[Rfam]
Shown here is a 600-nucleotide part of an RNA from Microbacterium lemovicicum, a member of the family "Bacterial large subunit ribosomal RNA".
The family has 102 seed sequences and 51,934 matches in Rfam 15.1.
It scores 2816 bits against the family's covariance model.
RNA sequence: GAGCAAACGGUGAAUGCCUUGGCAUCUGGAGCCGAAGAAGGACGUAGCAAUCUGCGAUAAGCCUCGGGGAGUGGAUAAGCACACUGUGAUCCGAGGGUGUCCGAAUGGGGAAACCCCGCUGGGCGGCGUGCCGACCUAGUGACUCCCGCCUGAAUAUAUAGGGCGGGUAGAGGGAACGUGGGGAAGUGAAACAUCUCAGUACCCACAGGAAGAGAAAGCAACCGCGAUUCCGUUAGUAGUGGCGAGCGAAACCGGAACAGGCUAAACCGAGUACGUGUGAUAUCCGGCAGGAGUUGCGUAUUCGGGGUUGUGGGACUUUUUGGGCUGCUCUGCCGAGCAGCCGGCGUGACAAGAAGGUAUAGACGAACAGGAUUGAAAGCCUGGUCAUAGAGGGUGUGAACCCCGUAGUCGAAAUGCCUUGUCUUGGCGUGAAGAGUAUCCCAAGUAGCACGGGGCCCGAGAAAUCCCGUGUGAAUCUGUCAGGACCACCUGAUAAGCCUAAAUACUCCCAGAUGACCGAUAGCGGACAAGUACCGUGAGGGAAAGGUGAAAAGUACCCCGGGAGGGGAGUGAAAUAGUACCUGAAACCGUUUGCUUACA
Numbered sequence: 001g002a003g004c005a006a007a008c009g010g011u012g013a014a015u016g017c018c019u020u021g022g023c024a025u026c027u028g029g030a031g032c033c034g035a036a037g038a039a040g041g042a043c044g045u046a047g048c049a050a051u052c053u054g055c056g057a058u059a060a061g062c063c064u065c066g067g068g069g070a071g072u073g074g075a076u077a078a079g080c081a082c083a084c085u086g087u088g089a090u091c092c093g094a095g096g097g098u099g100u101c102c103g104a105a106u107g108g109g110g111a112a113a114c115c116c117c118g119c120u121g122g123g124c125g126g127c128g129u130g131c132c133g134a135c136c137u138a139g140u141g142a143c144u145c146c147c148g149c150c151u152g153a154a155u156a157u158a159u160a161g162g163g164c165g166g167g168u169a170g171a172g173g174g175a176a177c178g179u180g181g182g183g184a185a186g187u188g189a190a191a192c193a194u195c196u197c198a199g200u201a202c203c204c205a206c207a208g209g210a211a212g213a214g215a216a217a218g219c220a221a222c223c224g225c226g227a228u229u230c231c232g233u234u235a236g237u238a239g240u241g242g243c244g245a246g247c248g249a250a251a252c253c254g255g256a257a258c259a260g261g262c263u264a265a266a267c268c269g270a271g272u273a274c275g276u277g278u279g280a281u282a283u284c285c286g287g288c289a290g291g292a293g294u295u296g297c298g299u300a301u302u303c304g305g306g307g308u309u310g311u312g313g314g315a316c317u318u319u320u321u322g323g324g325c326u327g328c329u330c331u332g333c334c335g336a337g338c339a340g341c342c343g344g345c346g347u348g349a350c351a352a353g354a355a356g357g358u359a360u361a362g363a364c365g366a367a368c369a370g371g372a373u374u375g376a377a378a379g380c381c382u383g384g385u386c387a388u389a390g391a392g393g394g395u396g397u398g399a400a401c402c403c404c405g406u407a408g409u410c411g412a413a414a415u416g417c418c419u420u421g422u423c424u425u426g427g428c429g430u431g432a433a434g435a436g437u438a439u440c441c442c443a444a445g446u447a448g449c450a451c452g453g454g455g456c457c458c459g460a461g462a463a464a465u466c467c468c469g470u471g472u473g474a475a476u477c478u479g480u481c482a483g484g485a486c487c488a489c490c491u492g493a494u495a496a497g498c499c500u501a502a503a504u505a506c507u508c509c510c511a512g513a514u515g516a517c518c519g520a521u522a523g524c525g526g527a528c529a530a531g532u533a534c535c536g537u538g539a540g541g542g543a544a545a546g547g548u549g550a551a552a553a554g555u556a557c558c559c560c561g562g563g564a565g566g567g568g569a570g571u572g573a574a575a576u577a578g579u580a581c582c583u584g585a586a587a588c589c590g591u592u593u594g595c596u597u598a599c600a
Base pairs, nucleotide, nucleotide: 001597002596003595004594005593006592007591008590009589010588016582017547018546021518022517023515024514025513026512027511028510029509030507031506032173033172040102041101042100043056044055045054062096063095064094065093066092067091068090071084072083073082107116108115109114117141118140119139120138121137122136123135143170144169145167146166147165148164149163150162151161177208178206179205180204181203182202188195189194218225219224228503229256230255231254232253239247240246259500260499261498262497267305268304269303270302271301272300273299274298275297276296277295312442313441314440316436317435318434319433320432348428350426351425352424353423354420355419356418357417358416359415360414362410363409364408368383369382370381371380386390392404393403394402448472449471450470451469452468453467454466455465479494480493481492482491483490534541535540557568558567559566560565